[Rfam]
RNA sequence: GGUCAUGAGUCCCAGCUACGAGCCCCGGCUUGCUGGGCGGCAACCCUCCAACCGCGGUGGGGUGCCCCGGGUGAAGACCUGGCCCUGCACACCUAGGUGUGCCAAGGACAAGCGCGGGUU
Numbered sequence: 001g002g003u004c005a006u007g008a009g010u011c012c013c014a015g016c017u018a019c020g021a022g023c024c025c026c027g028g029c030u031u032g033c034u035g036g037g038c039g040g041c042a043a044c045c046c047u048c049c050a051a052c053c054g055c056g057g058u059g060g061g062g063u064g065c066c067c068c069g070g071g072u073g074a075a076g077a078c079c080u081g082g083c084c085c086u087g088c089a090c091a092c093c094u095a096g097g098u099g100u101g102c103c104a105a106g107g108a109c110a111a112g113c114g115c116g117g118g119u120u
Base pairs, nucleotide, nucleotide: 001079002078003077004076009038011037012036013035014034015033016032021030022029039066040065041064044062045061046060048057049056082109084107085106086105088101089100090099091098092097
This 120-nucleotide RNA from Glutamicibacter creatinolyticus belongs to the Rfam family "SAM (S-adenosyl methionine) riboswitch aptamer".
The organism belongs to Glutamicibacter, within Bacteria.
Pairs were carried over by alignment from the consensus structure, which is taken from published work.